[Rfam]
This 106-nucleotide sequence from Cnephaeus nilssonii belongs to the Rfam family "mir-9261 microRNA precursor family". NCBI's taxonomy places the organism under Eukaryota, Chordata, Euteleostomi, Boreoeutheria, Cnephaeus.

RNA sequence: AACAAUUUGUUCUGCGUCCCACGGUGUUUUAAAAAAAUCUUUAAAAGAAUCUUUCCAAAAAUAGGGACUUUUUUAAAACGCCGUGGGACGCGGGACAAAUUGUUAA
Numbered sequence: 001a002a003c004a005a006u007u008u009g010u011u012c013u014g015c016g017u018c019c020c021a022c023g024g025u026g027u028u029u030u031a032a033a034a035a036a037a038u039c040u041u042u043a044a045a046a047g048a049a050u051c052u053u054u055c056c057a058a059a060a061a062u063a064g065g066g067a068c069u070u071u072u073u074u075a076a077a078a079c080g081c082c083g084u085g086g087g088a089c090g091c092g093g094g095a096c097a098a099a100u101u102g103u104u105a106a
Stems, first nucleotide, its partner, number of pairs: 001104035

A search with the family's covariance model found it, with a score of 90 bits.